This 52-nucleotide RNA sequence from Cohaesibacter sp. ES.047 belongs to the Rfam family "serC leader". For this family Rfam cites "Evidence for a second class of S-adenosylmethionine riboswitches and other regulatory RNA motifs in alpha-proteobacteria" (Corbino et al., Genome Biol, 2005). A search with the family's covariance model found it, with a score of 72 bits. This family is a putative regulatory RNA structure that is found upstream of the serC-serA operon in some alpha-proteobacteria. The base pairs follow the family's consensus structure.
[Rfam]
Nucleotides: 052
Stems, first nucleotide, its partner, number of pairs: 011028006032047006
Number, partner (000 for none) and nucleotide at each position: 001000c002000c003000g004000u005000g006000g007000g008000a009000c010000a011028c012027c013026u014025c015024u016023c017000c018000c019000c020000a021000a022000c023016g024015a025014g026013a027012g028011g029000c030000a031000a032047c033046u034045a035044u036043c037042u038000g039000u040000g041000a042037g043036g044035g045034u046033a047032g048000c049000u050000u051000u052000a
The source organism's lineage runs through Bacteria, Pseudomonadota, Alphaproteobacteria, Cohaesibacteraceae and Cohaesibacter.